A member of the RNA family "Small nucleolar RNA SNORA11" from Prolemur simus, 127 nucleotides long. Lineage of the source: Eukaryota > Tetrapoda > Amniota > Strepsirrhini > Prolemur. A search with the family's covariance model found it, with a score of 138 bits. Rfam classes the family as an H/ACA-box small nucleolar RNA. The family's consensus secondary structure was predicted with RNAalifold. Rfam describes the family as follows. U107 (SNORA11) is a member of the H/ACA class of snoRNAs that guide the sites of modification of uridines to pseudouridines. Gene Ontology terms of the family: RNA processing and nucleolus. A reference for the family is Gu et al. (2005), "A novel experimental approach for systematic identification of box H/ACA snoRNAs from eukaryotes", Nucleic Acids Res.

[Rfam]
RNA sequence: GGGGUGUACUCAGAGCAGGGGGCCUGAAGAAUGGCUCCUCUGUUUACAACACCCAACAGGAACCUGGGGUCACUGUAAUGAGGGACACAAAACUUGUGGCCUCCCUAUUAACAAAUGCCCUACAUGA
Numbered sequence: 001g002g003g004g005u006g007u008a009c010u011c012a013g014a015g016c017a018g019g020g021g022g023c024c025u026g027a028a029g030a031a032u033g034g035c036u037c038c039u040c041u042g043u044u045u046a047c048a049a050c051a052c053c054c055a056a057c058a059g060g061a062a063c064c065u066g067g068g069g070u071c072a073c074u075g076u077a078a079u080g081a082g083g084g085a086c087a088c089a090a091a092a093c094u095u096g097u098g099g100c101c102u103c104c105c106u107a108u109u110a111a112c113a114a115a116u117g118c119c120c121u122a123c124a125u126g127a
Stems, first nucleotide, its partner, number of pairs: 002054005013045009022035003067120004074113003080108001082102003086098005